[Rfam]
RNA sequence: GCUAGCUGAAAAUCGCCUGCGGCGUCACCCGUGGCCGCGGGUGAGAUUCGGCGCCCAGAGCAACCAGGGGCCUUAGCUCGCCGCCUACUGCCUGCGUGUAGGCGGCCGAAACCCAGGUCCCAACAGGC
Numbered sequence: 001g002c003u004a005g006c007u008g009a010a011a012a013u014c015g016c017c018u019g020c021g022g023c024g025u026c027a028c029c030c031g032u033g034g035c036c037g038c039g040g041g042u043g044a045g046a047u048u049c050g051g052c053g054c055c056c057a058g059a060g061c062a063a064c065c066a067g068g069g070g071c072c073u074u075a076g077c078u079c080g081c082c083g084c085c086u087a088c089u090g091c092c093u094g095c096g097u098g099u100a101g102g103c104g105g106c107c108g109a110a111a112c113c114c115a116g117g118u119c120c121c122a123a124c125a126g127g128c
Stems, first nucleotide, its partner, number of pairs: 005052006013044004021036003067121001069119005078109003082105001086100003
RNA: Small nucleolar RNA ACA64
Organism: Echinops telfairi